[Rfam]
RNA sequence: AGUCGAUGAUGAUUUCAUGUGUAAGAGUAGUGGACAGAAGUGAUUUCUGAACAAUUUCACACUGAGACU
Numbered sequence: 001a002g003u004c005g006a007u008g009a010u011g012a013u014u015u016c017a018u019g020u021g022u023a024a025g026a027g028u029a030g031u032g033g034a035c036a037g038a039a040g041u042g043a044u045u046u047c048u049g050a051a052c053a054a055u056u057u058c059a060c061a062c063u064g065a066g067a068c069u
Stems, first nucleotide, its partner, number of pairs: 001069004
Rfam assigns this 69-nucleotide RNA from Larimichthys crocea to the family "Small nucleolar RNA SNORD75". Pairs were carried over by alignment from the consensus structure, which was predicted with RNAalifold. Rfam 15.1 lists 767 matches to the family in 616 species. Its family is annotated with RNA processing and nucleolus in the Gene Ontology. The match comes from Rfam's covariance-model search (60 bits). It is annotated as a C/D-box small nucleolar RNA. The organism belongs to Larimichthys, within Eukaryota. On this family, see Galardi et al., Mol Cell Biol 2002: "Purified box C/D snoRNPs are able to reproduce site-specific 2'-O-methylation of target RNA in vitro".